[Rfam]
RNA sequence: UGAUCCUUUUAAGCCAAGGAUCACCUAGCCAACUGACGUUGUUAGUGAACGUAGUUUUUGUUCACAAGAAUACAGGCCAGCCCAUCUUUAUUAAGGGCUGGCUUUUUUUUA
Numbered sequence: 001u002g003a004u005c006c007u008u009u010u011a012a013g014c015c016a017a018g019g020a021u022c023a024c025c026u027a028g029c030c031a032a033c034u035g036a037c038g039u040u041g042u043u044a045g046u047g048a049a050c051g052u053a054g055u056u057u058u059u060g061u062u063c064a065c066a067a068g069a070a071u072a073c074a075g076g077c078c079a080g081c082c083c084a085u086c087u088u089u090a091u092u093a094a095g096g097g098c099u100g101g102c103u104u105u106u107u108u109u110u111a
Stems, first nucleotide, its partner, number of pairs: 001023006039075004045065007077101007
RNA: Qrr RNA
Organism: Vibrio ishigakensis